[Rfam]
RNA sequence: GAAGUCGGUCAGACAGUCGCUGCCUGGUAACAGGGAGAGGAAAGUCCGGGCUCCACAGAGCAGGAUGCCGGUUAACGGCCGGCCGCCGUGAGGUGAGGAACAGGGCCACAGAGACGAGCGUAUUAAGUUACGGUGAAACGCGGUAACCUCCAUCCGGAGCAAGAUCAAAUAGGCAGAUGAUGACGCUGCUCGCCGAGUCUGUGGGUAGAUCGCUUGAGCAUACGGGUAACGGUAUGCCUAGAGGAAUGACUGUCCAUGACAGAACCCGGCUUAUCGACCGGCUUCCCCC
Numbered sequence: 001g002a003a004g005u006c007g008g009u010c011a012g013a014c015a016g017u018c019g020c021u022g023c024c025u026g027g028u029a030a031c032a033g034g035g036a037g038a039g040g041a042a043a044g045u046c047c048g049g050g051c052u053c054c055a056c057a058g059a060g061c062a063g064g065a066u067g068c069c070g071g072u073u074a075a076c077g078g079c080c081g082g083c084c085g086c087c088g089u090g091a092g093g094u095g096a097g098g099a100a101c102a103g104g105g106c107c108a109c110a111g112a113g114a115c116g117a118g119c120g121u122a123u124u125a126a127g128u129u130a131c132g133g134u135g136a137a138a139c140g141c142g143g144u145a146a147c148c149u150c151c152a153u154c155c156g157g158a159g160c161a162a163g164a165u166c167a168a169a170u171a172g173g174c175a176g177a178u179g180a181u182g183a184c185g186c187u188g189c190u191c192g193c194c195g196a197g198u199c200u201g202u203g204g205g206u207a208g209a210u211c212g213c214u215u216g217a218g219c220a221u222a223c224g225g226g227u228a229a230c231g232g233u234a235u236g237c238c239u240a241g242a243g244g245a246a247u248g249a250c251u252g253u254c255c256a257u258g259a260c261a262g263a264a265c266c267c268g269g270c271u272u273a274u275c276g277a278c279c280g281g282c283u284u285c286c287c288c289c
Stems, first nucleotide, its partner, number of pairs: 001285010011274001012254007020037002023034004042272003046269005051159004058190001063155005068082005083097001084095004098150002103148002105144003119132004163211004173202006184195002187192001218237006225230001
Source information: Rfam assigns this 289-nucleotide sequence from Nitrosomonas eutropha to the family "Bacterial RNase P class A". Taxonomically the source falls in Nitrosomonas eutropha (Bacteria, Betaproteobacteria, Nitrosomonadales, Nitrosomonas). The family's RNA type in Rfam is ribozyme. Rfam describes the family as follows. Ribonuclease P (RNase P) is a ubiquitous endoribonuclease, found in archaea, bacteria and eukarya as well as chloroplasts and mitochondria. On this family, see Frank and Pace, Annu Rev Biochem 1998: "Ribonuclease P: unity and diversity in a tRNA processing ribozyme". The family's consensus secondary structure is taken from published work.